[Rfam]
RNA sequence: CGAUUAAAAAGCACGUAGCCGGAUUUUGGGGUGCCUGUAUCGACCCCACUCAGUAGAGUGGUGUGUUGAACACGGGUGUCCUUUCGCUUGGGUGUGACCUUCGGGUUUCGCUCGGGCACAUUACCAUGAGGAAAUUGGAGUGCUCAAGGCAUGCGUCUUGCAGUUGAACAGUACAGCAUGGGAUAAUUUUACAUGACGAGUUUCCAUUCUAUUGGUUUCUGGGAACUCGUAAUGAUUAAUGGGGGCGGUUGAGGUCCUUCGUACUCAAGUGUUAGCAGUGGAAUGCUCAGACCACUUGAAGACGAACAAAGGCGAAAGCAAUGGACUUACACGUUCUCGUCGGUCAAGUACGAUAGCAUGAGGAGAGAAGGCGAUUAGUUACCGCCGUAUUUCAUGCCGUAAACGAUGCCACCUGGGGAUUGGGAAUCCAAGAAGCUUCUCAGGACCCUCCGAGAAAUCAAAGUCAUCAGGCUUCGGGGGAAUUACGCUCGCAAGAGUGAAACUUAAAGGAAU
Numbered sequence: 001c002g003a004u005u006a007a008a009a010a011g012c013a014c015g016u017a018g019c020c021g022g023a024u025u026u027u028g029g030g031g032u033g034c035c036u037g038u039a040u041c042g043a044c045c046c047c048a049c050u051c052a053g054u055a056g057a058g059u060g061g062u063g064u065g066u067u068g069a070a071c072a073c074g075g076g077u078g079u080c081c082u083u084u085c086g087c088u089u090g091g092g093u094g095u096g097a098c099c100u101u102c103g104g105g106u107u108u109c110g111c112u113c114g115g116g117c118a119c120a121u122u123a124c125c126a127u128g129a130g131g132a133a134a135u136u137g138g139a140g141u142g143c144u145c146a147a148g149g150c151a152u153g154c155g156u157c158u159u160g161c162a163g164u165u166g167a168a169c170a171g172u173a174c175a176g177c178a179u180g181g182g183a184u185a186a187u188u189u190u191a192c193a194u195g196a197c198g199a200g201u202u203u204c205c206a207u208u209c210u211a212u213u214g215g216u217u218u219c220u221g222g223g224a225a226c227u228c229g230u231a232a233u234g235a236u237u238a239a240u241g242g243g244g245g246c247g248g249u250u251g252a253g254g255u256c257c258u259u260c261g262u263a264c265u266c267a268a269g270u271g272u273u274a275g276c277a278g279u280g281g282a283a284u285g286c287u288c289a290g291a292c293c294a295c296u297u298g299a300a301g302a303c304g305a306a307c308a309a310a311g312g313c314g315a316a317a318g319c320a321a322u323g324g325a326c327u328u329a330c331a332c333g334u335u336c337u338c339g340u341c342g343g344u345c346a347a348g349u350a351c352g353a354u355a356g357c358a359u360g361a362g363g364a365g366a367g368a369a370g371g372c373g374a375u376u377a378g379u380u381a382c383c384g385c386c387g388u389a390u391u392u393c394a395u396g397c398c399g400u401a402a403a404c405g406a407u408g409c410c411a412c413c414u415g416g417g418g419a420u421u422g423g424g425a426a427u428c429c430a431a432g433a434a435g436c437u438u439c440u441c442a443g444g445a446c447c448c449u450c451c452g453a454g455a456a457a458u459c460a461a462a463g464u465c466a467u468c469a470g471g472c473u474u475c476g477g478g479g480g481a482a483u484u485a486c487g488c489u490c491g492c493a494a495g496a497g498u499g500a501a502a503c504u505u506a507a508a509g510g511a512a513u
Base pairs, nucleotide, nucleotide: 001476002475003474009473011351013349014348018344019343020342242338243337244336245335246333247332250329253327254326255325256324257323259321260304261303265299266298267297268296269295270294271293275286276285277284312319313318356397357396358395359394360393361392365391366390370386371385372384373383408472409471410470413463415448416447417446420443421442422441423440424439425438426437452459453458478505479504480503487498488497489496490495
Rfam assigns this 513-nucleotide part of an RNA from Kipferlia bialata to the family "Eukaryotic small subunit ribosomal RNA". The family's consensus secondary structure is taken from published work. It scores 1514 bits against the family's covariance model. The family has 90 seed sequences and 75,755 matches in Rfam 15.1.